[Rfam]
RNA sequence: CUGGUGUGGUGGGGGAGCUCCAUAAGGGGCUGAGAGGAUCCGGAUGGAUCGAUCCCUGGAACCUGAUCCGGGUAAUACCGGCGGAGGGAAAUUAUGGAAAAAAAUAG
Numbered sequence: 001c002u003g004g005u006g007u008g009g010u011g012g013g014g015g016a017g018c019u020c021c022a023u024a025a026g027g028g029g030c031u032g033a034g035a036g037g038a039u040c041c042g043g044a045u046g047g048a049u050c051g052a053u054c055c056c057u058g059g060a061a062c063c064u065g066a067u068c069c070g071g072g073u074a075a076u077a078c079c080g081g082c083g084g085a086g087g088g089a090a091a092u093u094a095u096g097g098a099a100a101a102a103a104a105u106a107g
Stems, first nucleotide, its partner, number of pairs: 006095005011057004017030005037050005062087003068081004
The record is a 107-nucleotide RNA sequence, which matches "TPP riboswitch aptamer (THI element)" in Rfam.
Rfam's curators put it in the seed alignment.